[Rfam]
RNA: CRISPR RNA direct repeat element
Organism: Erythranthe guttata
RNA sequence: AUUAAAAUUAGAACGUUCCGGAAUGUAAAA
Number, nucleotide and partner (000 for none) at each position: 001a000002u000003u000004a000005a000006a000007a000008u000009u000010a000011g000012a000013a026014c025015g024016u023017u022018c000019c000020g000021g000022a017023a016024u015025g014026u013027a000028a000029a000030a000